[Rfam]
Overview
The family of this 133-nucleotide RNA sequence from Alligator sinensis is "Small nucleolar RNA SNORA55". About the family: ACA55 is a member of the H/ACA class of snoRNA that guide the sites of modification of uridines to pseudouridines. Pairs were carried over by alignment from the consensus structure, which was predicted with PFOLD.
RNA sequence: GCACCUAAAUCUUUCCUGUCCUUGCGGUACAGUGCAAGUCUGGGGACAGCAGGUGCUAUAGCACAGCAGAGGAAAUCCAGACGGGUUGCCUUGCACUUCAGUUGGGAUCUGUCUCUACAACUCUGCAACACAU
Numbered sequence: 001g002c003a004c005c006u007a008a009a010u011c012u013u014u015c016c017u018g019u020c021c022u023u024g025c026g027g028u029a030c031a032g033u034g035c036a037a038g039u040c041u042g043g044g045g046a047c048a049g050c051a052g053g054u055g056c057u058a059u060a061g062c063a064c065a066g067c068a069g070a071g072g073a074a075a076u077c078c079a080g081a082c083g084g085g086u087u088g089c090c091u092u093g094c095a096c097u098u099c100a101g102u103u104g105g106g107a108u109c110u111g112u113c114u115c116u117a118c119a120a121c122u123c124u125g126c127a128a129c130a131c132a133u
Stems, first nucleotide, its partner, number of pairs: 001056005013046006021038002066126006079114008094104002